A member of the RNA family "isrJ Hfq binding RNA" from Enterobacteriaceae bacterium strain FGI 57, 73 nucleotides long.
A reference for the family is Padalon-Brauch et al. (2008), "Small RNAs encoded within genetic islands of Salmonella typhimurium show host-induced expression and role in virulence", Nucleic Acids Res.
NCBI's taxonomy places the organism under Bacteria, Pseudomonadati, Gammaproteobacteria, Enterobacterales, Enterobacteriaceae.
A search with the family's covariance model found it, with a score of 69 bits.
Pairs were carried over by alignment from the consensus structure, which was predicted with RNAalifold.
The family's RNA type in Rfam is small RNA.
RNA sequence: UGUAAAUCUGAUAUCGUCGCCAUAGCUUCGGUAGUCGACAAACAUUAAGAGCCUCGCCAACGUGCGGGGCUUU
Numbered sequence: 001u002g003u004a005a006a007u008c009u010g011a012u013a014u015c016g017u018c019g020c021c022a023u024a025g026c027u028u029c030g031g032u033a034g035u036c037g038a039c040a041a042a043c044a045u046u047a048a049g050a051g052c053c054u055c056g057c058c059a060a061c062g063u064g065c066g067g068g069g070c071u072u073u
Base pairs, nucleotide, nucleotide: 016039017038018037019036021034049072050071051070052069053068054067055066056065057064